[Rfam]
Shown here is a 359-nucleotide part of an RNA from Halarchaeum acidiphilum, a member of the family "Archaeal large subunit ribosomal RNA".
RNA sequence: CGGGAACAACCGACGUCAGGGAAUUCGGCAAAUUGGUCCCGUAAGUUCGCGAUAAGGGAUGCCUGCCUCGGGAUGAGGCAGGUCGCAGUGACAUGGAAGCUCCGACUGUCUAGUAACAACAUAGGUGACCGCAAAUCCGCAAGGACUCGUACGGUCACUGAAUCCUGCCCAGUGCGGGUAUCUGAACACCUCGUACAAGAGGACGAAGGACCCGUUAACGGCGGGGGUAACUAUGACCCUCUUAAGGUAGCGUAGUACCUUGCCGCUUCAGUAGCGGCUUGCAUGAAUGGAUCAACGAGAGCUUCACUGUCCCGACGUUGGGCCCGGUGAACUGUACGUUCCAGUGCGGAGUCUGGAGA
Number, nucleotide and partner (000 for none) at each position: 001c326002g325003g324004g323005a000006a000007c000008a000009a000010c321011c320012g319013a318014c317015g316016u315017c314018a000019g312020g311021g310022a000023a000024u000025u000026c000027g000028g000029c000030a000031a000032a000033u000034u000035g000036g060037u059038c058039c057040c056041g000042u000043a000044a000045g050046u000047u000048c000049g000050c045051g000052a000053u000054a000055a000056g040057g039058g038059a037060u036061g083062c082063c081064u080065g079066c078067c077068u076069c075070g000071g000072g000073a000074u000075g069076a068077g067078g066079c065080a064081g063082g062083u061084c088085g000086c000087a000088g084089u000090g000091a000092c000093a000094u000095g000096g305097a304098a303099g302100c301101u300102c299103c297104g296105a000106c000107u121108g120109u119110c000111u000112a000113g000114u000115a000116a000117c000118a000119a109120c108121a107122u000123a000124g159125g158126u157127g156128a155129c154130c153131g152132c149133a000134a000135a000136u145137c144138c143139g000140c000141a000142a000143g138144g137145a136146c000147u000148c000149g132150u000151a000152c131153g130154g129155u128156c127157a126158c125159u124160g000161a000162a292163u291164c290165c289166u000167g222168c221169c220170c000171a000172g219173u218174g215175c214176g213177g212178g211179u000180a000181u210182c209183u208184g000185a000186a000187c000188a000189c202190c201191u200192c199193g000194u000195a000196c000197a000198a000199g192200a191201g190202g189203a000204c000205g000206a000207a000208g183209g182210a181211c178212c177213c176214g175215u174216u000217a000218a173219c172220g169221g168222c167223g241224g240225g239226g238227g237228u236229a000230a000231c000232u000233a000234u000235g000236a228237c227238c226239c225240u224241c223242u246243u000244a000245a000246g242247g000248u000249a000250g000251c000252g000253u000254a000255g000256u000257a000258c000259c000260u000261u000262g278263c277264c276265g275266c274267u273268u000269c000270a000271g000272u000273a267274g266275c265276g264277g263278c262279u000280u000281g000282c000283a000284u000285g000286a000287a000288u000289g165290g164291a163292u162293c000294a000295a000296c104297g103298a000299g102300a101301g100302c099303u098304u097305c096306a000307c000308u000309g000310u021311c020312c019313c000314g017315a016316c015317g014318u013319u012320g011321g010322g000323c004324c003325c002326g001327g000328u000329g000330a000331a000332c000333u000334g000335u000336a000337c000338g000339u000340u357341c356342c355343a354344g353345u000346g000347c000348g000349g000350a000351g000352u000353c344354u343355g342356g341357a340358g000359a000
Notes:
The base pairs follow the family's consensus structure, which is taken from published work.